[Rfam]
RNA: U7 small nuclear RNA
RNA sequence: UAGUGUUACAGCUCUUUUAGAAUUUGCCUAACAGGUUUUCCAUUUUUUCCACGGGAACCUUU
Numbered sequence: 001u002a003g004u005g006u007u008a009c010a011g012c013u014c015u016u017u018u019a020g021a022a023u024u025u026g027c028c029u030a031a032c033a034g035g036u037u038u039u040c041c042a043u044u045u046u047u048u049c050c051a052c053g054g055g056a057a058c059c060u061u062u
Stems, first nucleotide, its partner, number of pairs: 034059005040054002043051001